[Rfam]
RNA sequence: GUGAAGGAUAUGGGAGACUACUUUUAUAAGUGACCGAAGGGACAAGUUUAAUUAAGUACCCAACUUAAUUAAAUGAAAUUCUCAGGUACAAACACCAUAUCUAGACG
Numbered sequence: 001g002u003g004a005a006g007g008a009u010a011u012g013g014g015a016g017a018c019u020a021c022u023u024u025u026a027u028a029a030g031u032g033a034c035c036g037a038a039g040g041g042a043c044a045a046g047u048u049u050a051a052u053u054a055a056g057u058a059c060c061c062a063a064c065u066u067a068a069u070u071a072a073a074u075g076a077a078a079u080u081c082u083c084a085g086g087u088a089c090a091a092a093c094a095c096c097a098u099a100u101c102u103a104g105a106c107g
Stems, first nucleotide, its partner, number of pairs: 006102008020031004033087003036083002040081003046074012
The family of this 107-nucleotide sequence from Romboutsia lituseburensis is "Glycine riboswitch aptamer".